MIR480 microRNA precursor family: a 129-nucleotide RNA sequence from Populus tomentosa. A search with the family's covariance model found it, with a score of 69 bits. Rfam links the family to the GO terms RISC complex and miRNA-mediated post-transcriptional gene silencing. Rfam 15.1 lists 3,070 matches to the family in 171 species. Taxonomically the source falls in Populus (Eukaryota, Streptophytina, Euphyllophyta, eudicotyledons).
RNA sequence: UAAUUUGUGGGCAAAUCCUUAUCUAGUUAGUGUAGAUUAACACAUGACUUCUUAGAAUCACUCGUUAUUACAGGCCCGACUACAUCACCAUCCUUUCUCGGAACUUAUUACUUGACUUCUAAUCAAAUU
Numbered sequence: 001u002a003a004u005u006u007g008u009g010g011g012c013a014a015a016u017c018c019u020u021a022u023c024u025a026g027u028u029a030g031u032g033u034a035g036a037u038u039a040a041c042a043c044a045u046g047a048c049u050u051c052u053u054a055g056a057a058u059c060a061c062u063c064g065u066u067a068u069u070a071c072a073g074g075c076c077c078g079a080c081u082a083c084a085u086c087a088c089c090a091u092c093c094u095u096u097c098u099c100g101g102a103a104c105u106u107a108u109u110a111c112u113u114g115a116c117u118u119c120u121a122a123u124c125a126a127a128u129u
Stems, first nucleotide, its partner, number of pairs: 002129002004126002008122001010120002016115001022110001024107002026104003